[Rfam]
RNA sequence: UAGGCGACGCGGAACUGACGGAUAUAAGUGGAACUAACCACGUGGACCGCGCUGCUGUAAGAUUAGCCGGCCGUCUGGGCAGAGAGA
Numbered sequence: 001u002a003g004g005c006g007a008c009g010c011g012g013a014a015c016u017g018a019c020g021g022a023u024a025u026a027a028g029u030g031g032a033a034c035u036a037a038c039c040a041c042g043u044g045g046a047c048c049g050c051g052c053u054g055c056u057g058u059a060a061g062a063u064u065a066g067c068c069g070g071c072c073g074u075c076u077g078g079g080c081a082g083a084g085a086g087a
Stems, first nucleotide, its partner, number of pairs: 003056004008051005015044001017075005028041004064082001066080003
RNA: ZMP/ZTP riboswitch aptamer (pfl RNA motif)
Organism: Phascolarctobacterium sp. CAG:266